[Rfam]
RNA sequence: UGUGAUACCCAUCAAAGGAGAAGUUCCCCAAGUAGAAGCUACUUUACCAUAUUCUGAAUUC
Dot-bracket structure: ................((((.((((.(.......).)))).))))................